The family of this 96-nucleotide RNA sequence from Capra hircus is "Vault RNA". The organism belongs to Capra, within Eukaryota. The family's consensus secondary structure is taken from published work. It is annotated as a non-coding RNA gene. A search with the family's covariance model found it, with a score of 59 bits.

RNA sequence: GGGCUGGCUCCAGCUCAGCGGUUCCUUCGACUGAAUCAUGGUUUAAGCGCCCUUUCCAGGGUGGUUCAACACCCGCGGGCACUCCCCAGUCCUUAA
Dot-bracket structure: .((((((.....((((.((((.....(.((...................................)).)...)))))))).....)))))).....